[Rfam]
RNA: Streptomyces-metH RNA
Organism: Streptomyces sp. CC53
RNA sequence: CCGUCCGCCACGUGGAACGAGAUGUCCACCCCGGGGGCGGGACGGUUACGCUGACGACGUGCGCCUCCCGCCCGGUGGCGCAAAGCCGACAGCCGUCGCACCUCAGGGAGCACCUCCAUG
Numbered sequence: 001c002c003g004u005c006c007g008c009c010a011c012g013u014g015g016a017a018c019g020a021g022a023u024g025u026c027c028a029c030c031c032c033g034g035g036g037g038c039g040g041g042a043c044g045g046u047u048a049c050g051c052u053g054a055c056g057a058c059g060u061g062c063g064c065c066u067c068c069c070g071c072c073c074g075g076u077g078g079c080g081c082a083a084a085g086c087c088g089a090c091a092g093c094c095g096u097c098g099c100a101c102c103u104c105a106g107g108g109a110g111c112a113c114c115u116c117c118a119u120g
Stems, first nucleotide, its partner, number of pairs: 060082004065077001067075002085099002088097003